[Rfam]
This 139-nucleotide RNA sequence from Paenibacillus oceani belongs to the Rfam family "c-di-AMP riboswitch aptamer (ydaO/yuaA leader)".
RNA sequence: AAUACGGACAGGCCGAAGCUUCAUUGUGAAGCGCGGGGGAACCCAGAUCUACCGGGGUGAAGCCAACGUUUGUUGGCCGGGUGAUUGCUCUUUGACCCGAAUCCGUCAGCUAACCUCGCAGGCCGCAAAAAGGAGAGGA
Number, nucleotide and partner (000 for none) at each position: 001a000002a000003u000004a000005c000006g000007g000008a000009c000010a000011g124012g123013c122014c121015g000016a000017a000018g032019c031020u030021u000022c000023a000024u000025u000026g000027u000028g000029a000030a020031g019032c018033g119034c118035g117036g116037g115038g114039g000040a000041a000042c000043c054044c000045a000046g000047a000048u000049c000050u000051a000052c000053c000054g043055g104056g103057g102058u000059g000060a000061a000062g000063c076064c075065a074066a073067c000068g000069u000070u000071u000072g000073u066074u065075g064076g063077c000078c000079g098080g097081g096082u095083g000084a000085u000086u000087g000088c000089u000090c000091u000092u000093u000094g000095a082096c081097c080098c079099g000100a000101a000102u057103c056104c055105g000106u000107c000108a000109g000110c000111u000112a000113a000114c038115c037116u036117c035118g034119c033120a000121g014122g013123c012124c011125g000126c000127a000128a000129a000130a000131a000132g000133g000134a000135g000136a000137g000138g000139a000
Taxonomically the source falls in Paenibacillus (Bacteria, Bacillota, Caryophanales, Paenibacillaceae).